Notes: A member of the RNA family "Small nucleolar RNA snoR100" from Rhododendron williamsianum, 108 nucleotides long. The literature on the family includes a 2002 paper in Curr Biol by Marker et al., "Experimental RNomics: identification of 140 candidates for small non-messenger RNAs in the plant Arabidopsis thaliana". NCBI's taxonomy places the organism under Eukaryota, Streptophytina, Tracheophyta, asterids, Rhododendron. It is annotated as an H/ACA-box small nucleolar RNA. The base pairs follow the family's consensus structure, which was predicted with WAR. Rfam links the family to the GO terms RNA processing and nucleolus. It scores 84 bits against the family's covariance model.

[Rfam]
RNA sequence: CAAUGAAGGAAGUAUGGUAAUGUGCACAUAAAUUGAAUUGGGUCUCUAGGCCUGCCCUCUUUGAUGCCAUUUGGCUUUGAUUUGGGGUUAUGGUUCCACAGCAAAACA
Numbered sequence: 001c002a003a004u005g006a007a008g009g010a011a012g013u014a015u016g017g018u019a020a021u022g023u024g025c026a027c028a029u030a031a032a033u034u035g036a037a038u039u040g041g042g043u044c045u046c047u048a049g050g051c052c053u054g055c056c057c058u059c060u061u062u063g064a065u066g067c068c069a070u071u072u073g074g075c076u077u078u079g080a081u082u083u084g085g086g087g088u089u090a091u092g093g094u095u096c097c098a099c100a101g102c103a104a105a106a107c108a
Base pairs, nucleotide, nucleotide: 012025013024014023015022040091042089044087050081052079054075055074056073